[Rfam]
RNA: Small nucleolar RNA SNORA73 family
RNA sequence: CCAACGUGGAUAUCUCCGGGAAGUCUCUCUCCCCAGGGCUCUGUCCAGGUGGCGUAGGGGAGCACAGGGCUUUGCCCACUGAUGUACAUCCCUUUCCACAGCGUUGCAGAGAAAGCCGGGCCUUAGUGCUCCUGCACAUUCCUACAGCUUCUCAGAGUCUUAUGGACAAUGACUGAGGAGAUAAACCAUGAAGGAAACAUCU
Numbered sequence: 001c002c003a004a005c006g007u008g009g010a011u012a013u014c015u016c017c018g019g020g021a022a023g024u025c026u027c028u029c030u031c032c033c034c035a036g037g038g039c040u041c042u043g044u045c046c047a048g049g050u051g052g053c054g055u056a057g058g059g060g061a062g063c064a065c066a067g068g069g070c071u072u073u074g075c076c077c078a079c080u081g082a083u084g085u086a087c088a089u090c091c092c093u094u095u096c097c098a099c100a101g102c103g104u105u106g107c108a109g110a111g112a113a114a115g116c117c118g119g120g121c122c123u124u125a126g127u128g129c130u131c132c133u134g135c136a137c138a139u140u141c142c143u144a145c146a147g148c149u150u151c152u153c154a155g156a157g158u159c160u161u162a163u164g165g166a167c168a169a170u171g172a173c174u175g176a177g178g179a180g181a182u183a184a185a186c187c188a189u190g191a192a193g194g195a196a197a198c199a200u201c202u
Stems, first nucleotide, its partner, number of pairs: 002106006008046005014038003019030003049099004058092004062087001064085003067080002131194003135190002148180006157167004